[Rfam]
RNA sequence: AAGCAUGUCAGAAGGACACUUUUUGAUCAACUGUUUGUAUCUUUCCCAAGCUUUAUAGAGGGAUUCACCUUCUUUCUGUCUGAAGGUUUGAACAUCAGCUCUAAGCUU
Dot-bracket structure: (.((.((..................................................((.(..........).))..........................)).)).)
A member of the RNA family "Plant small nucleolar RNA R71" from Arachis hypogaea, 108 nucleotides long. On this family, see Brown et al., Trends Plant Sci 2003: "Plant snoRNAs: functional evolution and new modes of gene expression". Its family is annotated with RNA processing and nucleolus in the Gene Ontology.